[Rfam]
RNA sequence: UGAGUAGGACAGGUGAUCGCGGCUGCUUUUAAGCAGGUGAGGAAAGUCCGGGCUUCAUAGGGCAGGAUGCCGGAUAACGUCCGGUGGAGGUGACUCCCAGGCCAGUGCAACAGAAAUAAACCGCCUUUUGCGGGAUUCCGCAAGAGGUAAGGGUGGAAAGGCAGUGUAAGAGACUACCGUGCUUGUGGUAACACAAGUAGCCAUGUAAACCCCAUCCGAAGCAAGACCAAGAAUGCCUUUUGGCAGGAAAACCAUAGAUUUGCCCGAUCUGUUUUCCGGUAGGUCGCUUGAGCUCGUCGGUAACGACGUUCCUAGAAAGAUGAUCAUCCACGACAUAACCCGGCUUAUCGUCUUACUCACAUU
Numbered sequence: 001u002g003a004g005u006a007g008g009a010c011a012g013g014u015g016a017u018c019g020c021g022g023c024u025g026c027u028u029u030u031a032a033g034c035a036g037g038u039g040a041g042g043a044a045a046g047u048c049c050g051g052g053c054u055u056c057a058u059a060g061g062g063c064a065g066g067a068u069g070c071c072g073g074a075u076a077a078c079g080u081c082c083g084g085u086g087g088a089g090g091u092g093a094c095u096c097c098c099a100g101g102c103c104a105g106u107g108c109a110a111c112a113g114a115a116a117u118a119a120a121c122c123g124c125c126u127u128u129u130g131c132g133g134g135a136u137u138c139c140g141c142a143a144g145a146g147g148u149a150a151g152g153g154u155g156g157a158a159a160g161g162c163a164g165u166g167u168a169a170g171a172g173a174c175u176a177c178c179g180u181g182c183u184u185g186u187g188g189u190a191a192c193a194c195a196a197g198u199a200g201c202c203a204u205g206u207a208a209a210c211c212c213c214a215u216c217c218g219a220a221g222c223a224a225g226a227c228c229a230a231g232a233a234u235g236c237c238u239u240u241u242g243g244c245a246g247g248a249a250a251a252c253c254a255u256a257g258a259u260u261u262g263c264c265c266g267a268u269c270u271g272u273u274u275u276c277c278g279g280u281a282g283g284u285c286g287c288u289u290g291a292g293c294u295c296g297u298c299g300g301u302a303a304c305g306a307c308g309u310u311c312c313u314a315g316a317a318a319g320a321u322g323a324u325c326a327u328c329c330a331c332g333a334c335a336u337a338a339c340c341c342g343g344c345u346u347a348u349c350g351u352c353u354u355a356c357u358c359a360c361a362u363u
Stems, first nucleotide, its partner, number of pairs: 001359010011348001012328007020039002023036005044346003048343005053221004060265004065217005070084005085099001086097004100212002105210002107206003121152002123148011160178002163175003179201001180199008225285004247276006256270005292311001295308005

This 363-nucleotide sequence from Lachnospiraceae bacterium YSD2013 belongs to the Rfam family "Bacterial RNase P class A". Lineage of the source: Bacteria > Bacillati > Clostridia > Lachnospirales > Lachnospiraceae. Rfam classes the family as a ribozyme.